This 134-nucleotide sequence from Megalops atlanticus belongs to the Rfam family "Small nucleolar RNA SNORA14".
RNA sequence: GUGCAUGCUUAUAAACCCCCCAGUUGCUAUUCCUAGCCUCUGGGACAAGAAAGGAUGCAAAAACAAACUUAGAAUUGUCCAAAGCUAAGGGCUUUGUUCCAAUGGCUCUUGGCUAUUUCACUUCUUAAACAUUU
Numbered sequence: 001g002u003g004c005a006u007g008c009u010u011a012u013a014a015a016c017c018c019c020c021c022a023g024u025u026g027c028u029a030u031u032c033c034u035a036g037c038c039u040c041u042g043g044g045a046c047a048a049g050a051a052a053g054g055a056u057g058c059a060a061a062a063a064c065a066a067a068c069u070u071a072g073a074a075u076u077g078u079c080c081a082a083a084g085c086u087a088a089g090g091g092c093u094u095u096g097u098u099c100c101a102a103u104g105g106c107u108c109u110u111g112g113c114u115a116u117u118u119c120a121c122u123u124c125u126u127a128a129a130c131a132u133u134u
Stems, first nucleotide, its partner, number of pairs: 003058004009050002012048001019044005026037002062134002069127001071125003083114007091106002097102001
It scores 69 bits against the family's covariance model. Rfam links the family to the GO terms RNA processing and nucleolus. ACA14 is a member of the H/ACA class of snoRNA that guide the sites of modification of uridines to pseudouridines. The base pairs follow the family's consensus structure, which was predicted with RNAfold.